[Rfam]
RNA sequence: AAAAGAAAAGAGCAAACCCGUGGAAACACGGGGACGCAAAGCUACAGGGGCUACAGCGUAAAGCUAUGCCAGCCAGUUACCUUU
Number, nucleotide and partner (000 for none) at each position: 001a000002a000003a000004a000005g000006a000007a000008a000009a000010g000011a000012g037013c036014a000015a000016a000017c032018c031019c030020g029021u028022g027023g000024a000025a000026a000027c022028a021029c020030g019031g018032g017033g000034a000035c000036g013037c012038a000039a000040a078041g077042c076043u075044a000045c000046a000047g074048g073049g070050g069051c068052u000053a000054c000055a000056g064057c063058g000059u000060a000061a000062a000063g057064c056065u000066a000067u000068g051069c050070c049071a000072g000073c048074c047075a043076g042077u041078u040079a000080c000081c000082u000083u000084u000
Shown here is an 84-nucleotide RNA from Paenibacillus wynnii, a member of the family "c-di-GMP-I riboswitch aptamer". About the family: GEMM was predicted in a large-scale screen for bacterial structured RNA regulatory elements. The family's consensus secondary structure is taken from published work. Taxonomically the source falls in Paenibacillus (Bacteria, Bacillota, Bacilli, Paenibacillaceae).